Shown here is a 123-nucleotide sequence, a member of the family "Flavobacterium-1 RNA". It is annotated as a small RNA.

RNA sequence: CCGAGAUAGGGGUACAAGUCCUGCAGAAUUGCGUUCCUCUGGACUAAGCGAAGACCUGAUAAGGGUAGCGACGAAGCUCGGCGUGGUAAGGGGAGAGUGCCAGACGUGGUGUCUCCUACCACG
Numbered sequence: 001c002c003g004a005g006a007u008a009g010g011g012g013u014a015c016a017a018g019u020c021c022u023g024c025a026g027a028a029u030u031g032c033g034u035u036c037c038u039c040u041g042g043a044c045u046a047a048g049c050g051a052a053g054a055c056c057u058g059a060u061a062a063g064g065g066u067a068g069c070g071a072c073g074a075a076g077c078u079c080g081g082c083g084u085g086g087u088a089a090g091g092g093g094a095g096a097g098u099g100c101c102a103g104a105c106g107u108g109g110u111g112u113c114u115c116c117u118a119c120c121a122c123g
Stems, first nucleotide, its partner, number of pairs: 001081005007074001009072001010045001012044002015041002022033004048069002056065002083122004089117006100109003